[Rfam]
RNA sequence: CGCCCGACAUAUCUCCGAGUCCGGAUGUCCUAAAGCCCGCAGUGCAGGUGCCAUGGACGCCGGACCGAUAGGGUAGGAGUGGAAACGCUUUUGCCUCCCGGUGGAAAGGAGAAAAUGGAUGGAUGCA
Numbered sequence: 001c002g003c004c005c006g007a008c009a010u011a012u013c014u015c016c017g018a019g020u021c022c023g024g025a026u027g028u029c030c031u032a033a034a035g036c037c038c039g040c041a042g043u044g045c046a047g048g049u050g051c052c053a054u055g056g057a058c059g060c061c062g063g064a065c066c067g068a069u070a071g072g073g074u075a076g077g078a079g080u081g082g083a084a085a086c087g088c089u090u091u092u093g094c095c096u097c098c099c100g101g102u103g104g105a106a107a108g109g110a111g112a113a114a115a116u117g118g119a120u121g122g123a124u125g126c127a
Stems, first nucleotide, its partner, number of pairs: 003121001012112005019065006026059005035051002071096011097104002
Molybdenum/Tungsten riboswitch aptamer (Moco RNA motif): a 127-nucleotide RNA from an Actinomycetota bacterium. The organism belongs to Actinomycetota, within Bacteria. The base pairs follow the family's consensus structure, which is taken from published work.